[Rfam]
RNA sequence: AUGCCGUCCCGAGCGGCGUCCGUGGCCUCGAACGGGCCAGAGGCGCGGGGGUGGUGCCGUGUCGGCGCAGCACCACCUCCGUGCG
Numbered sequence: 001a002u003g004c005c006g007u008c009c010c011g012a013g014c015g016g017c018g019u020c021c022g023u024g025g026c027c028u029c030g031a032a033c034g035g036g037c038c039a040g041a042g043g044c045g046c047g048g049g050g051g052u053g054g055u056g057c058c059g060u061g062u063c064g065g066c067g068c069a070g071c072a073c074c075a076c077c078u079c080c081g082u083g084c085g
Base pairs, nucleotide, nucleotide: 001019002018003017004016005015006014007013020043021042023040025038026036027035028034045082046081047080048079049078050077051076052075053074054073055072056071057070059068060067061066
Description:
This 85-nucleotide sequence belongs to the Rfam family "Streptomyces RNA 6106". Rfam classes the family as a small RNA. The pairing is the family consensus, mapped onto this sequence. Identified by deep sequencing of transcriptome at the end of exponential growth phase. Appears smaller on northern blot than sequencing transcript. This indicates processing step. Streptomyces specific. The literature on the family includes a 2011 paper in RNA Biol by Vockenhuber et al., "Deep sequencing-based identification of small non-coding RNAs in Streptomyces coelicolor".